Selenocysteine insertion sequence 1: a 59-nucleotide sequence from Rattus norvegicus. Rfam 15.1 lists 3,793 matches to the family in 721 species. Lineage of the source: Eukaryota > Eumetazoa > Teleostomi > Muroidea > Rattus. Gene Ontology term of the family: selenocysteine incorporation. A search with the family's covariance model found it, with a score of 37 bits. The incorporation of selenocysteine into a protein sequence is directed by an in-frame UGA codon (usually a stop codon) within the coding region of the mRNA. Selenoprotein mRNAs contain a conserved secondary structure in the 3' UTR that is required for the distinction of UGA stop from UGA selenocysteine.

RNA sequence: UAUUUGUUUAUGAUGGUCACAGUGUAAAGUUCACACAGCUGUGACUUGAUUUUUAAAAA
Numbered sequence: 001u002a003u004u005u006g007u008u009u010a011u012g013a014u015g016g017u018c019a020c021a022g023u024g025u026a027a028a029g030u031u032c033a034c035a036c037a038g039c040u041g042u043g044a045c046u047u048g049a050u051u052u053u054u055a056a057a058a059a
Base pairs, nucleotide, nucleotide: 003059004058005057015046016045017044018043019042020041021040022039023038029036030035